[Rfam]
RNA sequence: UGUUUAUGAUGAUGAAAUUAAGACUUGUUUCUCAAGAACAUUCGCAGUUGCCGACUAAGAGCUUUCGCCUUUCUCUGGGCUUGAGAGCUAGUGCUGUUCUAUUCCUUCCUUGAAUGUCUGAAACA
Numbered sequence: 001u002g003u004u005u006a007u008g009a010u011g012a013u014g015a016a017a018u019u020a021a022g023a024c025u026u027g028u029u030u031c032u033c034a035a036g037a038a039c040a041u042u043c044g045c046a047g048u049u050g051c052c053g054a055c056u057a058a059g060a061g062c063u064u065u066c067g068c069c070u071u072u073c074u075c076u077g078g079g080c081u082u083g084a085g086a087g088c089u090a091g092u093g094c095u096g097u098u099c100u101a102u103u104c105c106u107u108c109c110u111u112g113a114a115u116g117u118c119u120g121a122a123a124c125a
Stems, first nucleotide, its partner, number of pairs: 001125004061088006
Rfam assigns this 125-nucleotide RNA from Papaver nudicaule to the family "Small nucleolar RNA SNORD14". Rfam 15.1 lists 4,559 matches to the family in 936 species. A search with the family's covariance model found it, with a score of 76 bits. About the family: U14 small nucleolar RNA (U14 snoRNA) is required for early cleavages of eukaryotic precursor rRNAs. In yeasts, this molecule possess a stem-loop region (known as the Y-domain) which is essential for function. A similar structure, but with a different consensus sequence, is found in plants, but is absent in vertebrates.